[Rfam]
RNA sequence: AUGCCUUAAACUGAUGAGUAAGGAAAAUAACGAUGCGGGGUGACGCCCGUGUCCUCGUUACAUUUACGAGAAGAAUUUUUGAAAGGGUUCAGGUCUGCCUGCUGAGGUGACUUGCCUACUUUGCGAGAUGCCUCGCAGGACCAGGAUCUGCCCC
Numbered sequence: 001a002u003g004c005c006u007u008a009a010a011c012u013g014a015u016g017a018g019u020a021a022g023g024a025a026a027a028u029a030a031c032g033a034u035g036c037g038g039g040g041u042g043a044c045g046c047c048c049g050u051g052u053c054c055u056c057g058u059u060a061c062a063u064u065u066a067c068g069a070g071a072a073g074a075a076u077u078u079u080u081g082a083a084a085g086g087g088u089u090c091a092g093g094u095c096u097g098c099c100u101g102c103u104g105a106g107g108u109g110a111c112u113u114g115c116c117u118a119c120u121u122u123g124c125g126a127g128a129u130g131c132c133u134c135g136c137a138g139g140a141c142c143a144g145g146a147u148c149u150g151c152c153c154c
Base pairs, nucleotide, nucleotide: 004023005022006021007020008019032053033052034051035050036049037048038047039046054070055069056068057067058066085153086152087151088150091149092148093147094146095144096143097142100137101136105133106132107131108130109129111127112126113125114124115123
U12 minor spliceosomal RNA: a 154-nucleotide RNA from Gouania willdenowi. The match comes from Rfam's covariance-model search (127 bits). Rfam 15.1 lists 2,106 matches to the family in 1,170 species. The literature on the family includes a 1997 paper in Trends Biochem Sci by Tarn and Steitz, "Pre-mRNA splicing: the discovery of a new spliceosome doubles the challenge". The base pairs follow the family's consensus structure.